[Rfam]
This 148-nucleotide RNA sequence from Hemibagrus wyckioides belongs to the Rfam family "U12 minor spliceosomal RNA". A search with the family's covariance model found it, with a score of 82 bits.
RNA sequence: AUGCCUUAAACUGAUGAGUGAGAAAAAUAACGGUGCGGGGCGAUGCUUGUGUCCCCGUGCCUACUCACGAUCCGUAUUUUUGAAGGGGUACAGGUCUAUUCUGAUCUGUUUACUUUGCAGACUGUCUCGCGGGUCAAAGAUCUGCCCU
Numbered sequence: 001a002u003g004c005c006u007u008a009a010a011c012u013g014a015u016g017a018g019u020g021a022g023a024a025a026a027a028u029a030a031c032g033g034u035g036c037g038g039g040g041c042g043a044u045g046c047u048u049g050u051g052u053c054c055c056c057g058u059g060c061c062u063a064c065u066c067a068c069g070a071u072c073c074g075u076a077u078u079u080u081u082g083a084a085g086g087g088g089u090a091c092a093g094g095u096c097u098a099u100u101c102u103g104a105u106c107u108g109u110u111u112a113c114u115u116u117g118c119a120g121a122c123u124g125u126c127u128c129g130c131g132g133g134u135c136a137a138a139g140a141u142c143u144g145c146c147c148u
Base pairs, nucleotide, nucleotide: 005022006021007020008019032053033052034051035050036049037048038047039046056069057068058067085148086147087146088145089144092143093142094141095140096139097138101132102131105121106120107119108118109117